[Rfam]
Nucleotides: 157
Base pairs, nucleotide, nucleotide: 002155003154004153005152006151007150008149009148010147011146012145013144014143015142017141018140019139032126033125034124035123037121038120039119040117041116042115057102058101059100061098062097063096064095065094070091071090074087075086076085077084078083
Number, partner (000 for none) and nucleotide at each position: 001000a002155g003154g004153c005152g006151g007150c008149u009148g010147c011146c012145u013144g014143a015142u016000a017141c018140g019139u020000u021000a022000g023000g024000a025000a026000a027000c028000a029000u030000u031000a032126u033125c034124c035123c036000c037121g038120g039119g040117g041116c042115c043000u044000u045000a046000c047000g048000c049000a050000u051000u052000c053000c054000u055000g056000a057102g058101g059100g060000a061098g062097c063096u064095g065094u066000c067000c068000c069000u070091g071090c072000u073000c074087u075086g076085g077084a078083c079000c080000g081000u082000g083078g084077u085076c086075u087074g088000u089000u090071g091070c092000a093000u094065a095064c096063g097062g098061c099000g100059c101058c102057c103000a104000c105000c106000u107000a108000c109000a110000u111000u112000g113000u114000a115042g116041g117040u118000u119039u120038c121037c122000c123035g124034g125033g126032a127000u128000u129000g130000c131000a132000c133000a134000u135000u136000c137000c138000g139019a140018c141017g142015g143014u144013c145012g146011g147010g148009c149008g150007g151006c152005u153004g154003u155002u156000u157000u